[Rfam]
RNA sequence: ACACAGGAAGGGAGGUGGUCCGCGAAAUUGAUAGCUUCAUGGACAUGUGAGGUGGCUGCGCGCUAGCUGCAUCGGCUCGGAAGAGCUGGCGAUCAACGCGCGCUGGCGAAUUCCCCGCAGUCACCCGGCCCCCGAGCUUCCGGUCAGUCCAACCAGGAGCAUUGCUCGGGGGCCGCCCCAU
Numbered sequence: 001a002c003a004c005a006g007g008a009a010g011g012g013a014g015g016u017g018g019u020c021c022g023c024g025a026a027a028u029u030g031a032u033a034g035c036u037u038c039a040u041g042g043a044c045a046u047g048u049g050a051g052g053u054g055g056c057u058g059c060g061c062g063c064u065a066g067c068u069g070c071a072u073c074g075g076c077u078c079g080g081a082a083g084a085g086c087u088g089g090c091g092a093u094c095a096a097c098g099c100g101c102g103c104u105g106g107c108g109a110a111u112u113c114c115c116c117g118c119a120g121u122c123a124c125c126c127g128g129c130c131c132c133c134g135a136g137c138u139u140c141c142g143g144u145c146a147g148u149c150c151a152a153c154c155a156g157g158a159g160c161a162u163u164g165c166u167c168g169g170g171g172g173c174c175g176c177c178c179c180a181u
Stems, first nucleotide, its partner, number of pairs: 015059005061108007069101002072098001074094002126175012139157002142154003
Description
The record is a 181-nucleotide sequence from Mycobacterium parmense, which matches "Actinobacteria sRNA Ms_IGR-5" in Rfam. Rfam classes the family as a small RNA. Lineage of the source: Bacteria > Actinomycetes > Mycobacteriales > Mycobacterium > Mycobacterium simiae complex.